[Rfam]
RNA sequence: CAGUGGGUGCAAGCCCCACCCGGCGAACGCUCCAGCCGGAAGCAACCGGAGGUCAUGGAGGUAACGAAGUGGCUGAAGCCUUCGGAUAGCGAGUCACAAAUUGGUGACAGCGCGAGUGUGCAGGCCGUAACGCGA
Number, nucleotide and partner (000 for none) at each position: 001c000002a000003g000004u000005g000006g000007g000008u000009g000010c000011a000012a000013g000014c000015c000016c000017c000018a000019c000020c039021c038022g037023g036024c035025g000026a000027a000028c000029g000030c000031u000032c000033c000034a000035g024036c023037c022038g021039g020040a000041a000042g000043c000044a000045a000046c000047c084048g083049g082050a081051g080052g073053u072054c071055a070056u000057g000058g000059a000060g065061g000062u000063a000064a000065c060066g000067a000068a000069g000070u055071g054072g053073c052074u000075g000076a000077a000078g000079c000080c051081u050082u049083c048084g047085g000086a000087u000088a000089g000090c000091g000092a000093g108094u107095c106096a105097c104098a000099a000100a000101u000102u000103g000104g097105u096106g095107a094108c093109a000110g000111c000112g128113c127114g126115a000116g000117u000118g000119u000120g000121c000122a000123g000124g000125c000126c114127g113128u112129a000130a000131c000132g000133c000134g000135a000
RNA: Group II catalytic intron D1-D4-4